[Rfam]
RNA sequence: GUAGGCUACGGGGACAUGUGUCCUAUUACUGUGGGGGGUAAAAUGGUGGGGACCUUGUGUGCUAUUGCAGGGGUGUUGACCAUUGCUCUGCCCGUUCCCGUCAUUGUUUCCAAC
Numbered sequence: 001g002u003a004g005g006c007u008a009c010g011g012g013g014a015c016a017u018g019u020g021u022c023c024u025a026u027u028a029c030u031g032u033g034g035g036g037g038g039u040a041a042a043a044u045g046g047u048g049g050g051g052a053c054c055u056u057g058u059g060u061g062c063u064a065u066u067g068c069a070g071g072g073g074u075g076u077u078g079a080c081c082a083u084u085g086c087u088c089u090g091c092c093c094g095u096u097c098c099c100g101u102c103a104u105u106g107u108u109u110c111c112a113a114c
Stems, first nucleotide, its partner, number of pairs: 001114002004111002008107004013102003018097001020095002037077004049063002

The record is a 114-nucleotide sequence from Channa argus, which matches "Potassium channel RNA editing signal" in Rfam. Gene Ontology term of the family: adenosine to inosine editing. NCBI's taxonomy places the organism under Eukaryota, Gnathostomata, Euteleostomi, Eurypterygia, Channa. Rfam classes the family as a cis-regulatory element. This family represents a group of sequences related to the human potassium channel Kv1.1 hairpin element which directs the efficient modification of an adenosine to inosine by an adenosine deaminase acting on RNA (ADAR). The ADAR modification causes an isoleucine/valine recoding event which lies in the ion-conducting pore of the potassium channel. It is thought that this editing event targets the process of fast inactivation and allows a more rapid recovery from inactivation at negative potentials.